[Rfam]
RNA sequence: AACGGUUUGACGUACAGACCAUUAAAGCAGUUUAGUAAGGCAGUCCCCUUCAAGAGUUAUCCGUUGAUACCCCUCGUAGUGCGCAUUUCCUUAACGCUUAAAAAAUCUGUAAAGCACGCCAUAUCGCCGAAAGGCACACUUAUUUUUUAAAAGGUAAUACACUAUGUCCGGUAAAAUGACUGGUAUCGUAAAAUGGUUCAACGCUGAUAAAGGCUUCGGCUUCAUCACUCCUGACGAUGGCUCCAAAGACGUGUUCGUACACUUCUCUGCUAUCCAGAACGACGGUUACAAAUCCCUGGAUGAAGGUCAGAAAGUUUCCUUCACCAUCGAAAGCGGCGCUAAAGGCCCGGCAGCUGGUAACGUAACCAGCCUGUAAUCUUAGCUUUAUAAGCUCAGAAUUGAAGAUCCCUGCCAAUCGGCGGGGAUUUUUUU
Dot-bracket structure: ...((((((.....)))))).....((.(((.......((..(.((((((.....((((..((((((.(((...(((((((......((.((((.((((............))))..........(((....)))...........))))..)).....))))))).(((((......)))))...........))))))))).)))).))))....)).)))...))).))..((((((.......((.....))..(.((((.((((((.(((((...((..........)).)))))....)).)))))))).)......))))))....(((.(((...))))))(((((((((......))))).))))..(((.((((.....)))).)))....((((((((((((....))))))))))))...
Shown here is a 432-nucleotide RNA sequence from Citrobacter koseri, a member of the family "cspA thermoregulator". Taxonomically the source falls in Citrobacter koseri (Bacteria, Pseudomonadota, Enterobacteriaceae, Citrobacter). The literature on the family includes a 2010 paper in Mol Cell by Giuliodori et al., "The cspA mRNA is a thermosensor that modulates translation of the cold-shock protein CspA". The sequence is in the family's curated seed alignment.